[Rfam]
RNA sequence: GAGUCUAACACGUGCAUGAGUCAAAGGGCUGUAACGAAACCCCAUGGCGAAAUGAAGGUGAAAGUCGACAAGGAUCGGUCGAGGUGGGAUCCUGCCCCCCGUGCGGUAGGCGCACCACCGGCCCAUCUCACCCGCACCGUCGGGGAGGUGGAGCAUGAGUGCGUGUGUUAGGACCCGAAAGAUGGUGAACUAUGCCUGGGUAGGGCGAAGCCAGCGGAAACUCUGGUGCAGGUCCGUAGCGGUCCUGACGUGCAAAUUGGUCGUCUGACCUAGGUAUAGGGGCAAAAGACUAAUUGAACCAUCUAGUAGCUGGUU
Numbered sequence: 001g002a003g004u005c006u007a008a009c010a011c012g013u014g015c016a017u018g019a020g021u022c023a024a025a026g027g028g029c030u031g032u033a034a035c036g037a038a039a040c041c042c043c044a045u046g047g048c049g050a051a052a053u054g055a056a057g058g059u060g061a062a063a064g065u066c067g068a069c070a071a072g073g074a075u076c077g078g079u080c081g082a083g084g085u086g087g088g089a090u091c092c093u094g095c096c097c098c099c100c101g102u103g104c105g106g107u108a109g110g111c112g113c114a115c116c117a118c119c120g121g122c123c124c125a126u127c128u129c130a131c132c133c134g135c136a137c138c139g140u141c142g143g144g145g146a147g148g149u150g151g152a153g154c155a156u157g158a159g160u161g162c163g164u165g166u167g168u169u170a171g172g173a174c175c176c177g178a179a180a181g182a183u184g185g186u187g188a189a190c191u192a193u194g195c196c197u198g199g200g201u202a203g204g205g206c207g208a209a210g211c212c213a214g215c216g217g218a219a220a221c222u223c224u225g226g227u228g229c230a231g232g233u234c235c236g237u238a239g240c241g242g243u244c245c246u247g248a249c250g251u252g253c254a255a256a257u258u259g260g261u262c263g264u265c266u267g268a269c270c271u272a273g274g275u276a277u278a279g280g281g282g283c284a285a286a287a288g289a290c291u292a293a294u295u296g297a298a299c300c301a302u303c304u305a306g307u308a309g310c311u312g313g314u315u
Stems, first nucleotide, its partner, number of pairs: 005171013020048003026042003030038001052059002083119005091110006121154002123151006132142001174313002177310001181303006190279011201267001203235004210227005216221001239264004244260002247258002281291002
RNA: Eukaryotic large subunit ribosomal RNA, nucleotides 903 to 1217